[Rfam]
RNA: c-di-GMP-I riboswitch aptamer
RNA sequence: UUCCGACAAAGGCAAACUUACUGAAAGGUAAGGACGCAAAGCUACAGGUCUAAGGAAUUUUCUAUGACGGUUGAGCUACCGAA
Numbered sequence: 001u002u003c004c005g006a007c008a009a010a011g012g013c014a015a016a017c018u019u020a021c022u023g024a025a026a027g028g029u030a031a032g033g034a035c036g037c038a039a040a041g042c043u044a045c046a047g048g049u050c051u052a053a054g055g056a057a058u059u060u061u062c063u064a065u066g067a068c069g070g071u072u073g074a075g076c077u078a079c080c081g082a083a
Base pairs, nucleotide, nucleotide: 012037013036017032018031019030020029021028022027040077041076042075043074045073046072047071048068049067050066055062056061